Overview:
let-7 microRNA precursor family: an 88-nucleotide sequence from Merluccius polli. A reference for the family is Rougvie (2001), "Control of developmental timing in animals", Nat Rev Genet. Clan: let-7 microRNA precursor clan. A search with the family's covariance model found it, with a score of 63 bits.

[Rfam]
RNA sequence: GCCGGCUGAGGUAGUAGUUUGUGCUGUUGGUUGGGUUGGCACGUUACCCGUUGAUGGAGAUGACUGCGCAAUCUACUGCCUUGCCGGC
Numbered sequence: 001g002c003c004g005g006c007u008g009a010g011g012u013a014g015u016a017g018u019u020u021g022u023g024c025u026g027u028u029g030g031u032u033g034g035g036u037u038g039g040c041a042c043g044u045u046a047c048c049c050g051u052u053g054a055u056g057g058a059g060a061u062g063a064c065u066g067c068g069c070a071a072u073c074u075a076c077u078g079c080c081u082u083g084c085c086g087g088c
Base pairs, nucleotide, nucleotide: 001088002087003086004085005084006083008082009081010080011079012078013077014076015075016074017073019071020070021069022068023067024066026064027063032050033049034048035047052059